The family of this 507-nucleotide sequence from Saccharopolyspora erythraea is "Saccharopolyspora sRNA 350". Lineage of the source: Bacteria > Actinomycetota > Actinomycetes > Saccharopolyspora > Saccharopolyspora erythraea. The base pairs follow the family's consensus structure, which was predicted with RNAfold.
RNA sequence: UUGAUGGUGUACUCCCAGUCGGAGUCGCCGUCCCCCAGCACCUGGGCGCCGAAGUACUCGCCGUCGGCCAUCACGUCGAGCACGGUCUGGUCGCCGUACUCGCCCCUGCCGAUCUUGUUGACCUUCCCGUGCGCCAGCAGGUAGACGGCGUCCGCCCGGUUGCCCGCCUCGGCGAUCACGUCACCGGGCUCGAACUCCUCCUGGCGGAACCGGUCGGCCAGCGCGGUGAGCGCGUCCUCGUCGUCGAAUCCGCGCAGCAGCGGCAGCUCGCACAGCUCGUGGGGGAUGACCCGGAUCUCGGCGCCGGUGUUGGUGAAGGUGACCCUGCCGUCGCCGAUGACGUAGCUCAGCCGGCGGUUGACCCGGUAGGUCCCGCCGGGGGUGUGCACCCAGGGCAGCAUGCGCAGGAGCCAACGCGAGGUGAUGCCCUGCAUCUGCGGAGCGGACUUGGUCGUGGUUGCCAGGUUCCGCGCCGCGGCCGUACCCAGGCUCAGCUGGGAACGCCCG
Numbered sequence: 001u002u003g004a005u006g007g008u009g010u011a012c013u014c015c016c017a018g019u020c021g022g023a024g025u026c027g028c029c030g031u032c033c034c035c036c037a038g039c040a041c042c043u044g045g046g047c048g049c050c051g052a053a054g055u056a057c058u059c060g061c062c063g064u065c066g067g068c069c070a071u072c073a074c075g076u077c078g079a080g081c082a083c084g085g086u087c088u089g090g091u092c093g094c095c096g097u098a099c100u101c102g103c104c105c106c107u108g109c110c111g112a113u114c115u116u117g118u119u120g121a122c123c124u125u126c127c128c129g130u131g132c133g134c135c136a137g138c139a140g141g142u143a144g145a146c147g148g149c150g151u152c153c154g155c156c157c158g159g160u161u162g163c164c165c166g167c168c169u170c171g172g173c174g175a176u177c178a179c180g181u182c183a184c185c186g187g188g189c190u191c192g193a194a195c196u197c198c199u200c201c202u203g204g205c206g207g208a209a210c211c212g213g214u215c216g217g218c219c220a221g222c223g224c225g226g227u228g229a230g231c232g233c234g235u236c237c238u239c240g241u242c243g244u245c246g247a248a249u250c251c252g253c254g255c256a257g258c259a260g261c262g263g264c265a266g267c268u269c270g271c272a273c274a275g276c277u278c279g280u281g282g283g284g285g286a287u288g289a290c291c292c293g294g295a296u297c298u299c300g301g302c303g304c305c306g307g308u309g310u311u312g313g314u315g316a317a318g319g320u321g322a323c324c325c326u327g328c329c330g331u332c333g334c335c336g337a338u339g340a341c342g343u344a345g346c347u348c349a350g351c352c353g354g355c356g357g358u359u360g361a362c363c364c365g366g367u368a369g370g371u372c373c374c375g376c377c378g379g380g381g382g383u384g385u386g387c388a389c390c391c392a393g394g395g396c397a398g399c400a401u402g403c404g405c406a407g408g409a410g411c412c413a414a415c416g417c418g419a420g421g422u423g424a425u426g427c428c429c430u431g432c433a434u435c436u437g438c439g440g441a442g443c444g445g446a447c448u449u450g451g452u453c454g455u456g457g458u459u460g461c462c463a464g465g466u467u468c469c470g471c472g473c474c475g476c477g478g479c480c481g482u483a484c485c486c487a488g489g490c491u492c493a494g495c496u497g498g499g500a501a502c503g504c505c506c507g
Stems, first nucleotide, its partner, number of pairs: 006390007014382003018328002021325002025322005031316002035313008045305008054233002057230008065111004075103001077102004082097005117222004122217002126213002129210002132206006139199003143196002149192002154189007161178002165174003234296004240290006249283006256277003260271003329342004351379007360372004391431007399423003403418003407415001437476004442471005447465006477506002480503003484499005